[Rfam]
RNA sequence: CACGGUGACCUGCCGAGUCCGUGCAGCCAGGAGGCACGGAGCCGGGGAACCAAUCGGCCUUAGACAUAUGGCCAGGGGUGAAUCGACAUGUCUGUUGUCGUAGGGCGUCUUCCCAGCCCGAAUCCGUCAGCUAACCCGGUAGGCAUCAGUGGAAGUCCCA
Numbered sequence: 001c002a003c004g005g006u007g008a009c010c011u012g013c014c015g016a017g018u019c020c021g022u023g024c025a026g027c028c029a030g031g032a033g034g035c036a037c038g039g040a041g042c043c044g045g046g047g048a049a050c051c052a053a054u055c056g057g058c059c060u061u062a063g064a065c066a067u068a069u070g071g072c073c074a075g076g077g078g079u080g081a082a083u084c085g086a087c088a089u090g091u092c093u094g095u096u097g098u099c100g101u102a103g104g105g106c107g108u109c110u111u112c113c114c115a116g117c118c119c120g121a122a123u124c125c126g127u128c129a130g131c132u133a134a135c136c137c138g139g140u141a142g143g144c145a146u147c148a149g150u151g152g153a154a155g156u157c158c159c160a
Stems, first nucleotide, its partner, number of pairs: 011145004018040007041140006051075001076125003084100004103119004
RNA: c-di-AMP riboswitch aptamer (ydaO/yuaA leader)
Organism: Streptosporangium carneum